[Rfam]
Rfam assigns this 138-nucleotide RNA from Paenibacillus sp. GP183 to the family "c-di-AMP riboswitch aptamer (ydaO/yuaA leader)". The base pairs follow the family's consensus structure. It scores 86 bits against the family's covariance model. The organism belongs to Paenibacillus, within Bacteria. This family represents a conserved RNA structure found upstream of the ydaO and yuaA genes in Bacillus subtilis and related genes in other bacteria.
RNA sequence: UCAACUAAGAGGCCGAAGCUUCAUAUGAUGCGCGGGGAACCCAUUGUUGUUUGGGGUGAAGCCAUGAUCCAUGGCCGGGCGAUUGCUCUUUGACCCGAACCCGUCAGCUAACCUCGCAGGCCGCAAAAAAGAGAGGAU
Number, nucleotide and partner (000 for none) at each position: 001u000002c000003a000004a000005c000006u000007a000008a000009g000010a000011g122012g121013c120014c119015g000016a000017a000018g031019c030020u000021u000022c000023a000024u000025a000026u000027g000028a000029u000030g019031c018032g117033c116034g115035g114036g113037g112038a000039a000040c000041c000042c053043a052044u000045u000046g000047u000048u000049g000050u000051u000052u043053g042054g102055g101056g100057u000058g000059a000060a000061g000062c074063c073064a072065u071066g000067a000068u000069c000070c000071a065072u064073g063074g062075c000076c000077g096078g095079g094080c000081g000082a000083u000084u000085g000086c000087u000088c000089u000090u000091u000092g000093a000094c079095c078096c077097g000098a000099a000100c056101c055102c054103g000104u000105c000106a000107g000108c000109u000110a000111a000112c037113c036114u035115c034116g033117c032118a000119g014120g013121c012122c011123g000124c000125a000126a000127a000128a000129a000130a000131g000132a000133g000134a000135g000136g000137a000138u000